[Rfam]
RNA sequence: UCCCGACAAAGCCAACCCCUUCGUGAGGGGGGGAACGGAAAGCCACGGGCCUCCGGAAUGGAGACAGCCGAGCCGCCAAA
Dot-bracket structure: ...........((...((((((....))))))....))...((..((((.(((((...))))).)..))).)).......
c-di-GMP-I riboswitch aptamer: an 80-nucleotide sequence from Geotalea uraniireducens. Pairs were carried over by alignment from the consensus structure, which is taken from published work.